[Rfam]
Source information: A member of the RNA family "Guanidine-II riboswitch aptamer (mini-ykkC)" from Geoanaerobacter pelophilus, 45 nucleotides long. Pairs were carried over by alignment from the consensus structure, which is taken from published work. Simpler in structure and has fewer highly conserved nucleotide positions than the ykkC-yxkD leader. Despite this each of its two stem-loop structures directly bind free guanidine. Therefore, mini-ykkC RNA motif represents a distinct class of guanidine-sensing RNAs. The literature on the family includes a 2007 paper in Nucleic Acids Res by Weinberg et al., "Identification of 22 candidate structured RNAs in bacteria using the CMfinder comparative genomics pipeline".

RNA sequence: AAGUGAGGACGACCUCACUACUUUCUUGCAACUGGGGACGGCCCC
Numbered sequence: 001a002a003g004u005g006a007g008g009a010c011g012a013c014c015u016c017a018c019u020a021c022u023u024u025c026u027u028g029c030a031a032c033u034g035g036g037g038a039c040g041g042c043c044c045c
Stems, first nucleotide, its partner, number of pairs: 002019007034045004
Dot-bracket structure: .(((((((....)))))))..............((((....))))